The record is a 294-nucleotide RNA from Pseudomonas cavernae, which matches "anti ponA RNA" in Rfam.
Its family is annotated with response to antibiotic in the Gene Ontology.
Pairs were carried over by alignment from the consensus structure, which was predicted with RNAfold.
[Rfam]
RNA sequence: GAAAUUAUCAUCCUCGGCGGACAGUAGCGCCGUGAUGAAAUCUGGGGGAAUAUCCGCGAAGCGGAUGGGGGAGCGCCGCAUCUCGCCGAACUCGGCAAUCAGCUUGGCAUCGCUGCUGUAGACCCGGAGGGGGAUCUGCAGUUGGAUGCUGCGGAGCGACUCGACAGACGGGAGUCCGGGACUCAGAUAAAGAUAGGCGCCGCUGAAACUGAGCAGCAGCCCACAAAAAACGGUGACGCAGAGCCACCAGAAGAAUUUCAGCAGGCGCAUCAAAACUUGUGGAUUUCCAAGUAA
Numbered sequence: 001g002a003a004a005u006u007a008u009c010a011u012c013c014u015c016g017g018c019g020g021a022c023a024g025u026a027g028c029g030c031c032g033u034g035a036u037g038a039a040a041u042c043u044g045g046g047g048g049a050a051u052a053u054c055c056g057c058g059a060a061g062c063g064g065a066u067g068g069g070g071g072a073g074c075g076c077c078g079c080a081u082c083u084c085g086c087c088g089a090a091c092u093c094g095g096c097a098a099u100c101a102g103c104u105u106g107g108c109a110u111c112g113c114u115g116c117u118g119u120a121g122a123c124c125c126g127g128a129g130g131g132g133g134a135u136c137u138g139c140a141g142u143u144g145g146a147u148g149c150u151g152c153g154g155a156g157c158g159a160c161u162c163g164a165c166a167g168a169c170g171g172g173a174g175u176c177c178g179g180g181a182c183u184c185a186g187a188u189a190a191a192g193a194u195a196g197g198c199g200c201c202g203c204u205g206a207a208a209c210u211g212a213g214c215a216g217c218a219g220c221c222c223a224c225a226a227a228a229a230a231c232g233g234u235g236a237c238g239c240a241g242a243g244c245c246a247c248c249a250g251a252a253g254a255a256u257u258u259c260a261g262c263a264g265g266c267g268c269a270u271c272a273a274a275a276c277u278u279g280u281g282g283a284u285u286u287c288c289a290a291g292u293a294a
Stems, first nucleotide, its partner, number of pairs: 011171002014168002017165001020162002025045001027043001029041001047084002050081002054078001057075002062069001086095003102157003105153001108148004115142008123133003178288004183283002197268005202262006213239002217235002221232001244253001